[Rfam]
A member of the RNA family "Small nucleolar RNA snoR14" from Actinidia chinensis, 85 nucleotides long.
It is annotated as a C/D-box small nucleolar RNA.
The family is grouped with related families in Rfam's "SNORD110 clan".
Rfam links the family to the GO terms RNA processing and nucleolus.
For this family Rfam cites "Multiple snoRNA gene clusters from Arabidopsis" (Brown et al., RNA, 2001).
The source organism's lineage runs through Eukaryota, Streptophytina, Pentapetalae, Ericales and Actinidia chinensis.

RNA sequence: GCGAGGUGAAGAUAGAAAUUCAUUUGUCUGUCAAUCCACUGAUUUAGUGUGAUGUUAAUAAUGAAUCCUGAUAGGUUCUGAUCGU
Numbered sequence: 001g002c003g004a005g006g007u008g009a010a011g012a013u014a015g016a017a018a019u020u021c022a023u024u025u026g027u028c029u030g031u032c033a034a035u036c037c038a039c040u041g042a043u044u045u046a047g048u049g050u051g052a053u054g055u056u057a058a059u060a061a062u063g064a065a066u067c068c069u070g071a072u073a074g075g076u077u078c079u080g081a082u083c084g085u
Base pairs, nucleotide, nucleotide: 001085002084003083004082